[Rfam]
RNA sequence: CGAGCGAGUGCCGCGCGGUCUCUGCCCGGACGCGGACCCUGGCGUACUUCCCCGACGCCAGGUGCCGGUUCGGACAGGGACCACGGGGCAUUCGCCUCCGGU
Numbered sequence: 001c002g003a004g005c006g007a008g009u010g011c012c013g014c015g016c017g018g019u020c021u022c023u024g025c026c027c028g029g030a031c032g033c034g035g036a037c038c039c040u041g042g043c044g045u046a047c048u049u050c051c052c053c054g055a056c057g058c059c060a061g062g063u064g065c066c067g068g069u070u071c072g073g074a075c076a077g078g079g080a081c082c083a084c085g086g087g088g089c090a091u092u093c094g095c096c097u098c099c100g101g102u
Stems, first nucleotide, its partner, number of pairs: 010089003014085002017082002020079005026073006033067003038062008

mraW RNA: a 102-nucleotide RNA sequence from Nocardia farcinica. The family's consensus secondary structure is taken from published work. Rfam's curators put it in the seed alignment. The family has 45 seed sequences and 851 matches in Rfam 15.1.